[Rfam]
RNA sequence: AGCCUUAUGUAUACGAGCCGAGAUUUCAUCAGACACCAAACUAUAAAGAUUGAUGAGGCUCCUAAGAUAGGUAAAGUA
Numbered sequence: 001a002g003c004c005u006u007a008u009g010u011a012u013a014c015g016a017g018c019c020g021a022g023a024u025u026u027c028a029u030c031a032g033a034c035a036c037c038a039a040a041c042u043a044u045a046a047a048g049a050u051u052g053a054u055g056a057g058g059c060u061c062c063u064a065a066g067a068u069a070g071g072u073a074a075a076g077u078a
Stems, first nucleotide, its partner, number of pairs: 002077002005074002008071001010069003016063002020061003024058007

The record is a 78-nucleotide RNA from Schistosoma japonicum, which matches "mir-3492 microRNA precursor family" in Rfam.
The base pairs follow the family's consensus structure, which was predicted with RNAalifold.